[Rfam]
RNA sequence: AUAUGAUAUAGAGGCCGCGAAUUGUCAAUAGUAACAUAUACCGUGAAGGUAUAUGUGAAAGGGGCGUUCGCCGAAGUUCUUAACAUAAAAGUUAUGAAUUGGGAUUAUACUGAAUAAGUAUAAUACUGUCUUUAGAGAAUUGCCCAAUUUUCUAAAGGAGUGCUUAUCAUAU
Numbered sequence: 001a002u003a004u005g006a007u008a009u010a011g012a013g014g015c016c017g018c019g020a021a022u023u024g025u026c027a028a029u030a031g032u033a034a035c036a037u038a039u040a041c042c043g044u045g046a047a048g049g050u051a052u053a054u055g056u057g058a059a060a061g062g063g064g065c066g067u068u069c070g071c072c073g074a075a076g077u078u079c080u081u082a083a084c085a086u087a088a089a090a091g092u093u094a095u096g097a098a099u100u101g102g103g104a105u106u107a108u109a110c111u112g113a114a115u116a117a118g119u120a121u122a123a124u125a126c127u128g129u130c131u132u133u134a135g136a137g138a139a140u141u142g143c144c145c146a147a148u149u150u151u152c153u154a155a156a157g158g159a160g161u162g163c164u165u166a167u168c169a170u171a172u
Stems, first nucleotide, its partner, number of pairs: 005168004010164002017071006024065003034056008075100005081094004101127002104124008129158011
Source information
Shown here is a 172-nucleotide sequence from Clostridium sp. BL8, a member of the family "Lysine riboswitch aptamer". From the family's description: Riboswitches are metabolite binding domains within certain messenger RNAs that serve as precision sensors for their corresponding targets. Allosteric rearrangement of mRNA structure is mediated by ligand binding, and this results in modulation of gene expression.